[Rfam]
Group II catalytic intron D1-D4-6: a 245-nucleotide RNA from Pseudolycoriella hygida. The match comes from Rfam's covariance-model search (101 bits). Gene Ontology term of the family: Group II intron splicing. On this family, see Bonen and Vogel, Trends Genet 2001: "The ins and outs of group II introns". Rfam 15.1 lists 1,617 matches to the family in 661 species.
RNA sequence: AAAGUCCUGUUAUGGAAGGAGUAGCUAGCUCCACCAUAUAGCGAGUCUUGCGCUGUUGAAGGUAACAACAGCAGUGAAGCGUAGACAGCGAAACAUUCGAGCCGAAACCAAAUGCUGAACGUGAUAGCCCUGAAAUUGUAUAGGUAGUGGAAGCUGGUGUUCUACACAAGAUAGCAAGCAAUAGAAGGCUAAAGGUUAAACUAGCGAGAAAUCCAAUAGUCUUCAACCACCAGGGCCUCAGGCGU
Dot-bracket structure: ...........((((..((((.......)))).)))).(.((..((((((((((((((..(....)..))))))))...)).)))).)).)...................................((((((..............((((..(((..((((........))))...)))....((((((((..(...................)..))))))))..)))))))))).........